[Rfam]
RNA sequence: CCCGGCCUGUGGUACAGACCUAUUUAUGCACGACAUUUUGAGUAAAGUAGUUCAAAUUUAAAGCGUUAUCCCUGAUAACCCUUCUAUGACGAAUUUCCUUUCUAGUGCCUCCAUAAGUAACUGAUGACCGGCUAUAACAUGCCCAUGGUGGCUUACAUUUAAUAUUGAAGGAAAUAGACAUGUCUAACAUGAUCAAAGGUCAAGUGAAGUGGUUCAACGAGUCUAAAGGUUUUGGUUUCAUCACUCCUGCUGACGGCAGCAAAGACGUGUUCGUACACUUCUCUGCUAUCCAGGAUCAAGGCUUCAAGACCCUGGCUGAAGGCCAGAACGUUCAGUUCUCUAUCGAGAACGGCGCUAAAGGUCCAUCAGCGGCUAACGUUACCGCUAUCUAAUCGGCUUUUUGCUGAUUGAUAAAAACCCGCCAAGGCGGGUUUUUUUGU
Numbered sequence: 001c002c003c004g005g006c007c008u009g010u011g012g013u014a015c016a017g018a019c020c021u022a023u024u025u026a027u028g029c030a031c032g033a034c035a036u037u038u039u040g041a042g043u044a045a046a047g048u049a050g051u052u053c054a055a056a057u058u059u060a061a062a063g064c065g066u067u068a069u070c071c072c073u074g075a076u077a078a079c080c081c082u083u084c085u086a087u088g089a090c091g092a093a094u095u096u097c098c099u100u101u102c103u104a105g106u107g108c109c110u111c112c113a114u115a116a117g118u119a120a121c122u123g124a125u126g127a128c129c130g131g132c133u134a135u136a137a138c139a140u141g142c143c144c145a146u147g148g149u150g151g152c153u154u155a156c157a158u159u160u161a162a163u164a165u166u167g168a169a170g171g172a173a174a175u176a177g178a179c180a181u182g183u184c185u186a187a188c189a190u191g192a193u194c195a196a197a198g199g200u201c202a203a204g205u206g207a208a209g210u211g212g213u214u215c216a217a218c219g220a221g222u223c224u225a226a227a228g229g230u231u232u233u234g235g236u237u238u239c240a241u242c243a244c245u246c247c248u249g250c251u252g253a254c255g256g257c258a259g260c261a262a263a264g265a266c267g268u269g270u271u272c273g274u275a276c277a278c279u280u281c282u283c284u285g286c287u288a289u290c291c292a293g294g295a296u297c298a299a300g301g302c303u304u305c306a307a308g309a310c311c312c313u314g315g316c317u318g319a320a321g322g323c324c325a326g327a328a329c330g331u332u333c334a335g336u337u338c339u340c341u342a343u344c345g346a347g348a349a350c351g352g353c354g355c356u357a358a359a360g361g362u363c364c365a366u367c368a369g370c371g372g373c374u375a376a377c378g379u380u381a382c383c384g385c386u387a388u389c390u391a392a393u394c395g396g397c398u399u400u401u402u403g404c405u406g407a408u409u410g411a412u413a414a415a416a417a418c419c420c421g422c423c424a425a426g427g428c429g430g431g432u433u434u435u436u437u438u439g440u
Stems, first nucleotide, its partner, number of pairs: 004020002007017003028247001030245001047238001050237001052235002057227003065223001067221001070219001073216003077213001079212002084182001086181003090177001097171005105128002141152003184199002251345003255341002264272002277331002280328001282327004286322002290315005351364002354362003368386005391409003395405003413436010